[Rfam]
RNA sequence: CAGAGUUUAUCUAACGUUUCGGCUACCACUGCAGUCUUUGAGAAAGGCUGCAGUGGUAGCCGAAACGUUAGAUAAACUCUGUAAGUAAAAUAAAUUUUGAUCUUUUUAAGUCCUGUGAGUGCGGUACCGUUUAUCUUCGUAUAUAUAUAUAUAUAUAUAUAUAUAU
Dot-bracket structure: ..((((((....((((.((((((((((((((.((((((.....)))))).)))))))))))))).))))....))))))..............((...................(((((................)))))(((((((....)))))))))......
Shown here is a 166-nucleotide RNA from Xenopus tropicalis, a member of the family "Small Cajal body specific RNA 1".
The base pairs follow the family's consensus structure, which was predicted with RNAalifold.
Rfam links the family to the GO terms nucleolus, Cajal body and RNA processing.